[Rfam]
A member of the RNA family "Small nucleolar RNA ACA64" from Bucco capensis, 109 nucleotides long. It is annotated as an H/ACA-box small nucleolar RNA. The literature on the family includes a 2006 paper in RNA by Schattner et al., "A computational screen for mammalian pseudouridylation guide H/ACA RNAs". Pairs were carried over by alignment from the consensus structure, which was predicted with WAR.
RNA sequence: ACAGUCUGAAAAUCCCUUGUGGUCUCCUGUGGCCCCUGGUCAGGAGAGGGAGCAUUAAACUCAUUGCCCACGGUAAAGUGUGGGGAGUGAUACCCAUGUUCCUAGAAUC
Numbered sequence: 001a002c003a004g005u006c007u008g009a010a011a012a013u014c015c016c017u018u019g020u021g022g023u024c025u026c027c028u029g030u031g032g033c034c035c036c037u038g039g040u041c042a043g044g045a046g047a048g049g050g051a052g053c054a055u056u057a058a059a060c061u062c063a064u065u066g067c068c069c070a071c072g073g074u075a076a077a078g079u080g081u082g083g084g085g086a087g088u089g090a091u092a093c094c095c096a097u098g099u100u101c102c103u104a105g106a107a108u109c
Stems, first nucleotide, its partner, number of pairs: 005047003013042001016039001021034004049102001051100005061090005069082003